[Rfam]
RNA: U11 spliceosomal RNA
Organism: Arachis hypogaea
RNA sequence: UAAAAGGGUCGGUUGGCUAUGUAUGCCACACUCAUCCGAAGUUGGUGAGUGCUGUAUGGCUAUCAAGACAUAUGGCCGACAUAAUUUCUGGAAACCCAUUAGGGUUGGCUCGCAUUGGCCGACCCUCCU
Numbered sequence: 001u002a003a004a005a006g007g008g009u010c011g012g013u014u015g016g017c018u019a020u021g022u023a024u025g026c027c028a029c030a031c032u033c034a035u036c037c038g039a040a041g042u043u044g045g046u047g048a049g050u051g052c053u054g055u056a057u058g059g060c061u062a063u064c065a066a067g068a069c070a071u072a073u074g075g076c077c078g079a080c081a082u083a084a085u086u087u088c089u090g091g092a093a094a095c096c097c098a099u100u101a102g103g104g105u106u107g108g109c110u111c112g113c114a115u116u117g118g119c120c121g122a123c124c125c126u127c128c129u
Base pairs, nucleotide, nucleotide: 008080009079010078011077012076014028015027016026017025029051030050031049032048033047034046035045036044052075053074054073055072056071057070058069101126102125103124104123105122106121107120108119110118111117112116